[Rfam]
RNA sequence: UCCCCGAGUAGAAGCGGUCAGGGCGGGAAGGCCCGGGACAUUGCUCGGCAA
Numbered sequence: 001u002c003c004c005c006g007a008g009u010a011g012a013a014g015c016g017g018u019c020a021g022g023g024c025g026g027g028a029a030g031g032c033c034c035g036g037g038a039c040a041u042u043g044c045u046c047g048g049c050a051a
Base pairs, nucleotide, nucleotide: 005047006046007045008044009043010042015036018038019037021034022033023032024031
RNA: Xanthine riboswitch aptamer (NMT1 RNA)
Organism: Aquibium oceanicum